[Rfam]
RNA sequence: CUGUGACGCCUUUCUUGGGCGUUUCCUCCCUAGACUCCAGGCCGCCUUCGGGCGGCCUUUCUUUUUUGCGGAU
Numbered sequence: 001c002u003g004u005g006a007c008g009c010c011u012u013u014c015u016u017g018g019g020c021g022u023u024u025c026c027u028c029c030c031u032a033g034a035c036u037c038c039a040g041g042c043c044g045c046c047u048u049c050g051g052g053c054g055g056c057c058u059u060u061c062u063u064u065u066u067u068g069c070g071g072a073u
Stems, first nucleotide, its partner, number of pairs: 008020004039058008